Annotation
U1 spliceosomal RNA: a 164-nucleotide RNA from Saimiri boliviensis. A reference for the family is Charenton et al. (2019), "Mechanism of 5' splice site transfer for human spliceosome activation", Science. About the family: U1 is a small nuclear RNA (snRNA) component of the spliceosome (involved in pre-mRNA splicing). Its 5' end forms complementary base pairs with the 5' splice junction, thus defining the 5' donor site of an intron. There are significant differences in sequence and secondary structure between metazoan and yeast U1 snRNAs, the latter being much longer (568 nucleotides as compared to 164 nucleotides in human). Nevertheless, secondary structure predictions suggest that all U1 snRNAs share a 'common core' consisting of helices I, II, the proximal region of III, and IV. This family does not contain the larger yeast sequences. By type it is a spliceosomal small nuclear RNA.

[Rfam]
RNA sequence: AAUCUUACCUGGUAGGGGAGAUACCGUGAUCACGAAGGUGGUUUUCCCAUGGCAAGACUUAUCCAUCGUGCUCUGGAUGUGCUGACCCCUGCGAUUUCCUCAAAUGUGGGAAACUCGACUGCAUAAUUUGUGGUAGUGGGGGACUGCGUUUGCGCUUUCCCCUG
Number, nucleotide and partner (000 for none) at each position: 001a000002a000003u000004c000005u000006u000007a000008c000009c000010u000011g000012g122013u121014a120015g119016g048017g047018g046019a045020g044021a043022u000023a042024c041025c040026g039027u038028g000029a000030u000031c000032a000033c000034g000035a000036a000037g000038g027039u026040g025041g024042u023043u021044u020045u019046c018047c017048c016049a090050u000051g088052g087053c000054a000055a000056g083057a000058c081059u000060u079061a078062u077063c076064c075065a000066u000067c000068g000069u000070g000071c000072u000073c000074u000075g064076g063077a062078u061079g060080u000081g058082c000083u056084g000085a000086c000087c052088c051089c000090u049091g000092c117093g116094a115095u113096u112097u111098c000099c109100u108101c000102a000103a000104a000105u000106g000107u000108g100109g099110g000111a097112a096113a095114c000115u094116c093117g092118a000119c015120u014121g013122c012123a000124u000125a000126a000127u000128u000129u000130g000131u000132g000133g000134u000135a000136g000137u000138g163139g162140g161141g160142g159143a158144c000145u000146g155147c154148g153149u000150u000151u000152g000153c148154g147155c146156u000157u000158u143159c142160c141161c140162c139163u138164g000